[Rfam]
Overview: The family of this 96-nucleotide sequence from Turnera subulata is "MIR535 microRNA precursor family". A search with the family's covariance model found it, with a score of 92 bits. Gene Ontology terms of the family: RISC complex and miRNA-mediated post-transcriptional gene silencing.
RNA sequence: AUAAUUGGUUGACGACGAGAGAGAGCACGCUUGUUUAGCAUUCAUGGAAUGGGCAUGCCUGUUUACAGGCGUGCUCUCUAUCGUUGUCAUAAAAAA
Numbered sequence: 001a002u003a004a005u006u007g008g009u010u011g012a013c014g015a016c017g018a019g020a021g022a023g024a025g026c027a028c029g030c031u032u033g034u035u036u037a038g039c040a041u042u043c044a045u046g047g048a049a050u051g052g053g054c055a056u057g058c059c060u061g062u063u064u065a066c067a068g069g070c071g072u073g074c075u076c077u078c079u080a081u082c083g084u085u086g087u088c089a090u091a092a093a094a095a096a
Stems, first nucleotide, its partner, number of pairs: 010089005016083002020079002023076001025074010
Lineage of the source: Eukaryota > Viridiplantae > Euphyllophyta > Spermatophyta > Turnera.